Background
Rfam assigns this 106-nucleotide RNA from Teichococcus wenyumeiae to the family "TPP riboswitch aptamer (THI element)".
[Rfam]
RNA sequence: CUGUUGUUCCUGGGGUGCCCGUUCUGAGCGGGCUGAGACGGCGGCGCCGAACCCAUUGAACCUGAUCCGGGUCAUACCGGCGGAGGGAUGGAAACACAGCCGGCCG
Numbered sequence: 001c002u003g004u005u006g007u008u009c010c011u012g013g014g015g016u017g018c019c020c021g022u023u024c025u026g027a028g029c030g031g032g033c034u035g036a037g038a039c040g041g042c043g044g045c046g047c048c049g050a051a052c053c054c055a056u057u058g059a060a061c062c063u064g065a066u067c068c069g070g071g072u073c074a075u076a077c078c079g080g081c082g083g084a085g086g087g088a089u090g091g092a093a094a095c096a097c098a099g100c101c102g103g104c105c106g
Stems, first nucleotide, its partner, number of pairs: 007093004011055004016049001017033005040048003061086003067080004